[Rfam]
Shown here is a 261-nucleotide RNA from Anaerobacillus alkaliphilus, a member of the family "BsrG".
RNA sequence: CAAUUACAUAUAGCAGGGUGGCAGCUGAUCCCCUUAGGAAAGGGGGUGAGGCUUUUGACGACAUAUGAAGCAUUUAGUCUGAUAGCUCAAUUUGGCUUAUUACUAAUAGCAGCUUUUACACUUAUCAUUACUGUUGUCGUCUAUAUAAACAAAAAGAAAUAGCCACCCUGCCCGACAAGUAAGGGGGCUAUUUCUACCCUGAGAUCGGCCGCUAUCUCUGCGGCAUGUAGUUGCAAAGACCGGGUGUGUCCAGCACUCGGU
Number, nucleotide and partner (000 for none) at each position: 001c233002a232003a231004u230005u229006a000007c227008a226009u225010a000011u208012a000013g171014c170015a169016g168017g167018g166019u165020g164021g000022c000023a000024g000025c000026u049027g000028a047029u000030c045031c044032c043033c042034u041035u000036a000037g000038g000039a000040a000041a034042g033043g032044g031045g030046g000047u028048g000049a026050g000051g000052c000053u000054u000055u000056u000057g141058a140059c139060g138061a137062c136063a135064u000065a000066u000067g000068a000069a000070g000071c000072a083073u000074u000075u000076a000077g000078u000079c000080u000081g000082a000083u072084a000085g000086c000087u000088c000089a000090a000091u000092u000093u133094g132095g131096c000097u000098u000099a000100u000101u000102a000103c000104u000105a000106a000107u000108a000109g000110c000111a000112g000113c000114u000115u000116u000117u000118a000119c000120a000121c000122u000123u000124a000125u000126c000127a000128u000129u000130a000131c095132u094133g093134u000135u063136g062137u061138c060139g059140u058141c057142u000143a000144u000145a000146u000147a000148a000149a000150c000151a000152a000153a000154a000155a000156g000157a000158a000159a000160u000161a000162g000163c000164c020165a019166c018167c017168c016169u015170g014171c013172c000173c000174g000175a000176c000177a000178a000179g000180u000181a000182a200183g199184g000185g000186g000187g000188c000189u000190a000191u000192u000193u000194c000195u000196a000197c000198c000199c183200u182201g000202a000203g000204a000205u000206c000207g000208g011209c223210c222211g221212c220213u000214a000215u000216c000217u000218c000219u000220g212221c211222g210223g209224c000225a009226u008227g007228u000229a005230g004231u003232u002233g001234c000235a000236a000237a000238g000239a261240c260241c259242g258243g257244g256245u255246g254247u253248g000249u000250c000251c000252a000253g247254c246255a245256c244257u243258c242259g241260g240261u239
Pairs were carried over by alignment from the consensus structure, which was predicted with WAR. Rfam 15.1 lists 614 matches to the family in 343 species. The literature on the family includes a 2012 paper in Mol Microbiol by Jahn et al., "BsrG/SR4 from Bacillus subtilis--the first temperature-dependent type I toxin-antitoxin system". Its family is annotated with toxin activity and autolysis in the Gene Ontology. Rfam describes the family as follows. bsrE, bsrG and bsrH pair through intermolecular interactions with antisense sRNAs. They form type I toxin/antitoxin system that includes an mRNA encoding for a short, toxic peptide (bsrE, bsrG and bsrH) and an antitoxin that is comprised of an antisense RNA. bsrG encodes a 39-amino-acid toxin, and the 180 nucleotide antisense sRNA called SR4 acts as the antitoxin (they overlap by 123 nucleotides). SR4 interaction with the 3'UTR of bsrG RNA promotes bsrG degradation and inhibits its translation.